mir-449 microRNA precursor family: an 88-nucleotide sequence from Ophiophagus hannah.
RNA sequence: UGUGUGUAGUGGAAUGGCAGUGUACUGUUAGCUGGAUGGAUAUCCAGAUGGCACCAGCUGACAUUCAGCUGCCAGCCUACGGCACAUA
Numbered sequence: 001u002g003u004g005u006g007u008a009g010u011g012g013a014a015u016g017g018c019a020g021u022g023u024a025c026u027g028u029u030a031g032c033u034g035g036a037u038g039g040a041u042a043u044c045c046a047g048a049u050g051g052c053a054c055c056a057g058c059u060g061a062c063a064u065u066c067a068g069c070u071g072c073c074a075g076c077c078u079a080c081g082g083c084a085c086a087u088a
Base pairs, nucleotide, nucleotide: 001088002087003086004085005084006083007082009080010079011078012077015074016073017072018071019070020069021068022066024064027062028061029060030059031058032057033056034055035054041050042049043048
Its family is annotated with miRNA-mediated post-transcriptional gene silencing and RISC complex in the Gene Ontology.